RNA sequence: AUUGAAAAAGGCAAAACUAUCGUAAGAUAGCGACGCAAAACUAUAGGGUCCUAAAAAAAGGACAGCCAGUUACCAUAU
Number, nucleotide and partner (000 for none) at each position: 001a078002u000003u075004g074005a000006a000007a000008a000009a000010g000011g036012c035013a000014a000015a000016a000017c030018u029019a028020u027021c026022g000023u000024a000025a000026g021027a020028u019029a018030g017031c000032g000033a000034c065035g012036c011037a000038a000039a071040a070041c069042u068043a000044u000045a000046g067047g066048g063049u062050c061051c000052u000053a000054a000055a000056a000057a000058a000059a000060g000061g050062a049063c048064a000065g034066c047067c046068a042069g041070u040071u039072a000073c000074c004075a003076u000077a000078u001
Rfam assigns this 78-nucleotide RNA from Firmicutes bacterium CAG:345 to the family "c-di-GMP-I-GGC riboswitch aptamer". The base pairs follow the family's consensus structure, which is taken from published work. The literature on the family includes a 2017 paper in Proc Natl Acad Sci U S A by Weinberg et al., "Bioinformatic analysis of riboswitch structures uncovers variant classes with altered ligand specificity". The organism belongs to Bacillota, within Bacteria.